[Rfam]
RNA: DUF3800-IX RNA
RNA sequence: AAACCAGUCCCGAAUUGUCACCGUAUGGUGUGCGUGCUGCGAACACAGCUAGGGGCUGGUUUCGAC
Numbered sequence: 001a002a003a004c005c006a007g008u009c010c011c012g013a014a015u016u017g018u019c020a021c022c023g024u025a026u027g028g029u030g031u032g033c034g035u036g037c038u039g040c041g042a043a044c045a046c047a048g049c050u051a052g053g054g055g056c057u058g059g060u061u062u063c064g065a066c
Stems, first nucleotide, its partner, number of pairs: 001062011016034003019030004036049004